[Rfam]
RNA sequence: AUAAGUUAACCACUUAAAAUGUGUUGGUUCCUUUAAUUAUACGUAUUAGCCUCAAUCGGAAUAGGCCUGAGGUUUUACGACUUAUUUAGGCUAAUGCGUAUAAUUAAAGGAUGUGACAUAUUUUAAGUGACAAACUUAUCU
Numbered sequence: 001a002u003a004a005g006u007u008a009a010c011c012a013c014u015u016a017a018a019a020u021g022u023g024u025u026g027g028u029u030c031c032u033u034u035a036a037u038u039a040u041a042c043g044u045a046u047u048a049g050c051c052u053c054a055a056u057c058g059g060a061a062u063a064g065g066c067c068u069g070a071g072g073u074u075u076u077a078c079g080a081c082u083u084a085u086u087u088a089g090g091c092u093a094a095u096g097c098g099u100a101u102a103a104u105u106a107a108a109g110g111a112u113g114u115g116a117c118a119u120a121u122u123u124u125a126a127g128u129g130a131c132a133a134a135c136u137u138a139u140c141u
Stems, first nucleotide, its partner, number of pairs: 001139007011129015029111019049091004
Shown here is a 141-nucleotide RNA from Anisodus acutangulus, a member of the family "MIR7993 microRNA precursor family". The family has 4 seed sequences and 59 matches in Rfam 15.1. It scores 102 bits against the family's covariance model. Pairs were carried over by alignment from the consensus structure, which was predicted with RNAalifold. The organism belongs to Anisodus, within Eukaryota.